The record is a 353-nucleotide RNA from Prolemur simus, which matches "7SK RNA" in Rfam.
The family's RNA type in Rfam is non-coding RNA gene.
It scores 277 bits against the family's covariance model.
From the family's description: 7SK was discovered as an abundant small nuclear RNA in the mid-70s but a possible function has only recently been suggested.
The source organism's lineage runs through Eukaryota, Deuterostomia, Chordata, Strepsirrhini and Prolemur.
Pairs were carried over by alignment from the consensus structure, which is taken from published work.
Its Rfam clan is "7SK clan".
A reference for the family is Blencowe (2002), "Transcription: surprising role for an elusive small nuclear RNA", Curr Biol.

[Rfam]
RNA sequence: GGAUGUGAGGGCGAUCUGGCUGCGACAUCUGUCACCCCAUUGAUCGCCAGGGUUGAUUCGGCUGAUCUGGCUGGCUAGGCGGGUGUCCCCUUCCUCCCUCACCGCUCCAUGUGCGUCCCUCCCGAAGCUGCGCGCUCGGUCGAAGAGGACGACCUUCCCCGAUAGAGGAGGACCGUUCUUCAGUCAAGGGUAUACGAGUAGCUGCGCUCCCCUGCUAGAACCUCCAAACAAGCUCUCAAGAUACUUGAUAACCCAUAUUUUUAAAAGAUACCGAAUUUCUCUUGGGCACAAAUGAUACUUUUCUAAUGAAAAAGACUUUAAUUUAAGGAAAAAAAUGUGAUUUUGUCUUGUUU
Numbered sequence: 001g002g003a004u005g006u007g008a009g010g011g012c013g014a015u016c017u018g019g020c021u022g023c024g025a026c027a028u029c030u031g032u033c034a035c036c037c038c039a040u041u042g043a044u045c046g047c048c049a050g051g052g053u054u055g056a057u058u059c060g061g062c063u064g065a066u067c068u069g070g071c072u073g074g075c076u077a078g079g080c081g082g083g084u085g086u087c088c089c090c091u092u093c094c095u096c097c098c099u100c101a102c103c104g105c106u107c108c109a110u111g112u113g114c115g116u117c118c119c120u121c122c123c124g125a126a127g128c129u130g131c132g133c134g135c136u137c138g139g140u141c142g143a144a145g146a147g148g149a150c151g152a153c154c155u156u157c158c159c160c161g162a163u164a165g166a167g168g169a170g171g172a173c174c175g176u177u178c179u180u181c182a183g184u185c186a187a188g189g190g191u192a193u194a195c196g197a198g199u200a201g202c203u204g205c206g207c208u209c210c211c212c213u214g215c216u217a218g219a220a221c222c223u224c225c226a227a228a229c230a231a232g233c234u235c236u237c238a239a240g241a242u243a244c245u246u247g248a249u250a251a252c253c254c255a256u257a258u259u260u261u262u263a264a265a266a267g268a269u270a271c272c273g274a275a276u277u278u279c280u281c282u283u284g285g286g287c288a289c290a291a292a293u294g295a296u297a298c299u300u301u302u303c304u305a306a307u308g309a310a311a312a313a314g315a316c317u318u319u320a321a322u323u324u325a326a327g328g329a330a331a332a333a334a335a336u337g338u339g340a341u342u343u344u345g346u347c348u349u350g351u352u353u
Stems, first nucleotide, its partner, number of pairs: 001108003005102007013093002018090002024087010035074002037070003042067004046062003116171002118168004122139004127135002140162003147158003208297001211294001213292001222286003231282002326349003330344004
Dot-bracket structure: (((.(((((((.((...((....((((((((((.(((((..(((((((...........))).)))))))..))...)))))))))).)).))..)))))))...))).......((((((((((.((.....))))))(((....(((......))).)))..)))).))....................................(..(.(........(((......((................................................)).))).....).)..)............................(((.((((.......))))..)))....